About this RNA:
The family of this 80-nucleotide RNA sequence from Myotis lucifugus is "Small nucleolar RNA SNORD72". NCBI's taxonomy places the organism under Eukaryota, Euteleostomi, Eutheria, Vespertilionidae, Myotis. Its family is annotated with RNA processing and nucleolus in the Gene Ontology. About the family: snoRNA HBII-240 belongs to the CD family of snoRNAs. It is the human orthologue of the mouse MBII-240 and is predicted to guide 2'O-ribose methylation of the large 28S rRNA at residue U4590. The base pairs follow the family's consensus structure. On this family, see Huttenhofer et al., EMBO J 2001: "RNomics: an experimental approach that identifies 201 candidates for novel, small, non-messenger RNAs in mouse".

[Rfam]
RNA sequence: AGCUUAUCAGUGAUGCUGUACAAAUAAAUGUCUGAACAUAUGAAUUCAAUAUUGAUUUCAACAUAUAACUGAGAUAAGCU
Numbered sequence: 001a002g003c004u005u006a007u008c009a010g011u012g013a014u015g016c017u018g019u020a021c022a023a024a025u026a027a028a029u030g031u032c033u034g035a036a037c038a039u040a041u042g043a044a045u046u047c048a049a050u051a052u053u054g055a056u057u058u059c060a061a062c063a064u065a066u067a068a069c070u071g072a073g074a075u076a077a078g079c080u
Base pairs, nucleotide, nucleotide: 002079003078004077005076006075007074008073